RNA sequence: UUUUCGCGUUAGCGAUUGCAGCGGCAUCCUUUUUUGGACGGCUGGGCCGGCAGAAAAAGAUAGAGCGGAAAGCGCGACCCGAU
Numbered sequence: 001u002u003u004u005c006g007c008g009u010u011a012g013c014g015a016u017u018g019c020a021g022c023g024g025c026a027u028c029c030u031u032u033u034u035u036g037g038a039c040g041g042c043u044g045g046g047c048c049g050g051c052a053g054a055a056a057a058a059g060a061u062a063g064a065g066c067g068g069a070a071a072g073c074g075c076g077a078c079c080c081g082a083u
Stems, first nucleotide, its partner, number of pairs: 012075003016071002021066002026061003032056004037051001039049004

The record is an 83-nucleotide RNA from Arenibacter nanhaiticus, which matches "Flavo-1 RNA" in Rfam. The organism belongs to Arenibacter, within Bacteria.